This 75-nucleotide RNA from Cnephaeus nilssonii belongs to the Rfam family "mir-9229 microRNA precursor family". The match comes from Rfam's covariance-model search (73 bits). The organism belongs to Cnephaeus, within Eukaryota.
RNA sequence: UGCUGUGCUUAUGGGGCAGGACUUGCUUCAGUGGUGCUUUGGUGCUCACUGAGUCUGCCCCUUGAGUGUUUCACU
Numbered sequence: 001u002g003c004u005g006u007g008c009u010u011a012u013g014g015g016g017c018a019g020g021a022c023u024u025g026c027u028u029c030a031g032u033g034g035u036g037c038u039u040u041g042g043u044g045c046u047c048a049c050u051g052a053g054u055c056u057g058c059c060c061c062u063u064g065a066g067u068g069u070u071u072c073a074c075u
Base pairs, nucleotide, nucleotide: 001073002072005069006068008066009065010064011063013061014060015059016058017057018056020055021054022053028052029051030050031049032048033047034046036043037042